[Rfam]
RNA sequence: AAUGAAAUAGGAGAUGAUAUCCUCCUUGUAAACCGCCGCUUUAAGCGGAUAAUGAUAUCUACGCGGGG
Numbered sequence: 001a002a003u004g005a006a007a008u009a010g011g012a013g014a015u016g017a018u019a020u021c022c023u024c025c026u027u028g029u030a031a032a033c034c035g036c037c038g039c040u041u042u043a044a045g046c047g048g049a050u051a052a053u054g055a056u057a058u059c060u061a062c063g064c065g066g067g068g
Stems, first nucleotide, its partner, number of pairs: 010025004016059006036048003
RNA: Fluoride riboswitch aptamer (crcB RNA motif)